[Rfam]
RNA sequence: ACACGUGCUCCGGGGUCGGUGAGAAUCCGAACCGGCGGUGACAGUCCGCGAGCCGAAGCGCCCCCACGGGCGCCACGCUGAUCCGGUGGAAUUCCGGGACCGACGGUGAUGUGCGACGACAAUCGCACGAGUCCGGAUGGGAGGCAGCACGGAG
Numbered sequence: 001a002c003a004c005g006u007g008c009u010c011c012g013g014g015g016u017c018g019g020u021g022a023g024a025a026u027c028c029g030a031a032c033c034g035g036c037g038g039u040g041a042c043a044g045u046c047c048g049c050g051a052g053c054c055g056a057a058g059c060g061c062c063c064c065c066a067c068g069g070g071c072g073c074c075a076c077g078c079u080g081a082u083c084c085g086g087u088g089g090a091a092u093u094c095c096g097g098g099a100c101c102g103a104c105g106g107u108g109a110u111g112u113g114c115g116a117c118g119a120c121a122a123u124c125g126c127a128c129g130a131g132u133c134c135g136g137a138u139g140g141g142a143g144g145c146a147g148c149a150c151g152g153a154g
Stems, first nucleotide, its partner, number of pairs: 004151006010143001017029003033102002035049004044100002052078002082098005104135003

FMN riboswitch aptamer (RFN element): a 154-nucleotide sequence from Microbacterium paludicola. A search with the family's covariance model found it, with a score of 71 bits. Gene Ontology term of the family: FMN binding.